[Rfam]
RNA: mir-3492 microRNA precursor family
Organism: Schistosoma haematobium
RNA sequence: GGCCUCUCUCCAUCCGUGUCGAGAUUCCGUCAAACACUAACCCACUAGUGUUGAUGAGACUUUCAAGUGAAGUGAAGUG
Numbered sequence: 001g002g003c004c005u006c007u008c009u010c011c012a013u014c015c016g017u018g019u020c021g022a023g024a025u026u027c028c029g030u031c032a033a034a035c036a037c038u039a040a041c042c043c044a045c046u047a048g049u050g051u052u053g054a055u056g057a058g059a060c061u062u063u064c065a066a067g068u069g070a071a072g073u074g075a076a077g078u079g
Base pairs, nucleotide, nucleotide: 002078003077005075006074008072009071011069012068014067017065018064021062022061023060025059026058028056029055030054031053